The record is a 305-nucleotide RNA from Channa argus, which matches "7SK RNA" in Rfam. Rfam 15.1 lists 49,373 matches to the family in 668 species. Taxonomically the source falls in Channa (Eukaryota, Vertebrata, Percomorphaceae, Anabantaria). For this family Rfam cites "Structural analyses of the 7SK ribonucleoprotein (RNP), the most abundant human small RNP of unknown function" (Wassarman and Steitz, Mol Cell Biol, 1991). It scores 224 bits against the family's covariance model.

[Rfam]
RNA sequence: GGAUGUGAGGGUGAUCUGGCCGCGACAUCUGUUACUCCAUUGAUCGCUAGGGUUGAUUCGGCUGAUCUGGCUCACGGGUGUCCCCCCUUCUCCCUCGCGGAUCCAUGUGUGUCCCUCCCGAAGCUCUGCGCUCGGUGGCAGCGGAUAUGUAUCCACGGACGAACUUCGGUUAACCAGUAGCUGCGCUCCCCUGCAACCGCCAAACAAGCUCAACGCCCCAUUGGUAGGAGAGACGUAGGGAAGUCAAGCUCACAUCUCCAGGCACAUCCAAAUGCGGCGCUGCACGUGGCAGUUUGCCUUGUCUU
Numbered sequence: 001g002g003a004u005g006u007g008a009g010g011g012u013g014a015u016c017u018g019g020c021c022g023c024g025a026c027a028u029c030u031g032u033u034a035c036u037c038c039a040u041u042g043a044u045c046g047c048u049a050g051g052g053u054u055g056a057u058u059c060g061g062c063u064g065a066u067c068u069g070g071c072u073c074a075c076g077g078g079u080g081u082c083c084c085c086c087c088u089u090c091u092c093c094c095u096c097g098c099g100g101a102u103c104c105a106u107g108u109g110u111g112u113c114c115c116u117c118c119c120g121a122a123g124c125u126c127u128g129c130g131c132u133c134g135g136u137g138g139c140a141g142c143g144g145a146u147a148u149g150u151a152u153c154c155a156c157g158g159a160c161g162a163a164c165u166u167c168g169g170u171u172a173a174c175c176a177g178u179a180g181c182u183g184c185g186c187u188c189c190c191c192u193g194c195a196a197c198c199g200c201c202a203a204a205c206a207a208g209c210u211c212a213a214c215g216c217c218c219c220a221u222u223g224g225u226a227g228g229a230g231a232g233a234c235g236u237a238g239g240g241a242a243g244u245c246a247a248g249c250u251c252a253c254a255u256c257u258c259c260a261g262g263c264a265c266a267u268c269c270a271a272a273u274g275c276g277g278c279g280c281u282g283c284a285c286g287u288g289g290c291a292g293u294u295u296g297c298c299u300u301g302u303c304u305u
Stems, first nucleotide, its partner, number of pairs: 001104003005098007013089002018085002024082009037070003042067004046062003118135004123131002145152001180249003186243002189240006198230001200228002204225002207222002270305002274300001276298003279293005